[Rfam]
RNA sequence: CGGUGGGCAUCUGCUCCGGGGAGAUGAAGUGGAUGUGGGUGUCGACGCCGCCGGCGGUGAGGAUCUUGCGCUCGCCGGCGAUGAUCUCGGUGGACGCGCCGAUGGUGAUGUCCACCCCGUCCUGCACAUUCGCGUUGCCGGCCUUGCCGAUCCGGAAGAUGUGCCCGUCGCGCAGCGCGACGUCGGCCUUGUAGAUGCCGGUGUGGUCCACGAUGACGGCGUUCGUGAUCACCGUGUCCGGCACGUCCCCGGCGCGCACCGCCUGCCCGUCGUGGCCCAUGCCGUCG
Numbered sequence: 001c002g003g004u005g006g007g008c009a010u011c012u013g014c015u016c017c018g019g020g021g022a023g024a025u026g027a028a029g030u031g032g033a034u035g036u037g038g039g040u041g042u043c044g045a046c047g048c049c050g051c052c053g054g055c056g057g058u059g060a061g062g063a064u065c066u067u068g069c070g071c072u073c074g075c076c077g078g079c080g081a082u083g084a085u086c087u088c089g090g091u092g093g094a095c096g097c098g099c100c101g102a103u104g105g106u107g108a109u110g111u112c113c114a115c116c117c118c119g120u121c122c123u124g125c126a127c128a129u130u131c132g133c134g135u136u137g138c139c140g141g142c143c144u145u146g147c148c149g150a151u152c153c154g155g156a157a158g159a160u161g162u163g164c165c166c167g168u169c170g171c172g173c174a175g176c177g178c179g180a181c182g183u184c185g186g187c188c189u190u191g192u193a194g195a196u197g198c199c200g201g202u203g204u205g206g207u208c209c210a211c212g213a214u215g216a217c218g219g220c221g222u223u224c225g226u227g228a229u230c231a232c233c234g235u236g237u238c239c240g241g242c243a244c245g246u247c248c249c250c251g252g253c254g255c256g257c258a259c260c261g262c263c264u265g266c267c268c269g270u271c272g273u274g275g276c277c278c279a280u281g282c283c284g285u286c287g
Stems, first nucleotide, its partner, number of pairs: 001287003006283004011158002014155001016154001018076002021073003030053003034050002037048001039046002057069003077148002081144001083142001085140001090138004095134003098130001100124001102123001104121003107117001163271001166269002170262003175257004186220003190216001200209002223252003231246001234244003

Background
5' ureB small RNA: a 287-nucleotide RNA from Arthrobacter mobilis. Rfam links the family to the GO term negative regulation of gene expression. A search with the family's covariance model found it, with a score of 98 bits. The source organism's lineage runs through Bacteria, Actinomycetota, Actinomycetes, Micrococcaceae and Arthrobacter. On this family, see Wen et al., J Bacteriol 2013: "Helicobacter pylori 5'ureB-sRNA, a cis-encoded antisense small RNA, negatively regulates ureAB expression by transcription termination".